[Rfam]
RNA: Y RNA
RNA sequence: UAUUUGUUUGAGGUAGUGAGUUAUCUCAAUUGAUUGCUCAGUCCAUUACAGAUCAAACUGCUUGUUCUAAUCUUUCCCCCUUCUCACCACUGCACUUGACUAGUCUUAA
Numbered sequence: 001u002a003u004u005u006g007u008u009u010g011a012g013g014u015a016g017u018g019a020g021u022u023a024u025c026u027c028a029a030u031u032g033a034u035u036g037c038u039c040a041g042u043c044c045a046u047u048a049c050a051g052a053u054c055a056a057a058c059u060g061c062u063u064g065u066u067c068u069a070a071u072c073u074u075u076c077c078c079c080c081u082u083c084u085c086a087c088c089a090c091u092g093c094a095c096u097u098g099a100c101u102a103g104u105c106u107u108a109a
Stems, first nucleotide, its partner, number of pairs: 002104003006100003010097002013093002016087005032067002